[Rfam]
RNA: SAM/SAH riboswitch aptamer
RNA sequence: AUCCCGUCACAACGGCUUCCUGGCGUGGCGGCGUCAUUCAAUGGAGCA
Number, nucleotide and partner (000 for none) at each position: 001a000002u000003c000004c031005c030006g029007u028008c027009a026010c025011a000012a000013c022014g021015g047016c046017u045018u000019c044020c043021u014022g013023g000024c000025g010026u009027g008028g007029c006030g005031g004032c000033g000034u000035c000036a000037u000038u000039c000040a000041a000042u000043g020044g019045a017046g016047c015048a000